[Rfam]
RNA sequence: UCGCGGGCGACUGCGAAUCCGAAGGAAGCCGAAGGCAAAGCGCUGGCCCGACGAGUGGGAGUCGGAUAAGGCGGCGUUGCGGUGUGAGACGGCCGAUAUCGUCAAAGCCCGGUACUUGCACGGCAACGCAACGACGUAGUUCCGACAGGCAUGAGCGUGAAGGUGGCUGCC
Dot-bracket structure: ((((((....))))))...........(.((...((...(((((.(((.(...........(((((....(((.((((((((.((..((((........))))...)).)................))))))).)))...)))))).)))...)))))....))...)).)
The family of this 171-nucleotide RNA from Pelomicrobium methylotrophicum is "Group II catalytic intron D1-D4-3". About the family: Group II introns are found in rRNA, tRNA and mRNA of organelles in fungi, plants and protists, and also in mRNA in bacteria. Rfam links the family to the GO term Group II intron splicing.